[Rfam]
RNA sequence: ACGCACGCGGAGGGCUCUGACACGCGGUCCAUACCCUGGCCGCCGGGACCGCGCCGAGCCACUGGCGAGACCGACCCGCGCGGUG
Numbered sequence: 001a002c003g004c005a006c007g008c009g010g011a012g013g014g015c016u017c018u019g020a021c022a023c024g025c026g027g028u029c030c031a032u033a034c035c036c037u038g039g040c041c042g043c044c045g046g047g048a049c050c051g052c053g054c055c056g057a058g059c060c061a062c063u064g065g066c067g068a069g070a071c072c073g074a075c076c077c078g079c080g081c082g083g084u085g
Base pairs, nucleotide, nucleotide: 004082006080007079008078009077010076013060014059015058023053024052025051026050027049028048029047038072039071041067042066043065044064
About this RNA
The record is an 85-nucleotide RNA sequence, which matches "c-di-GMP-II-GAG riboswitch aptamer" in Rfam. Rfam links the family to the GO terms cyclic-di-GMP binding and regulation of gene expression. A reference for the family is Weinberg et al. (2017), "Bioinformatic analysis of riboswitch structures uncovers variant classes with altered ligand specificity", Proc Natl Acad Sci U S A. The base pairs follow the family's consensus structure, which is taken from published work. It is one of the family's seed sequences.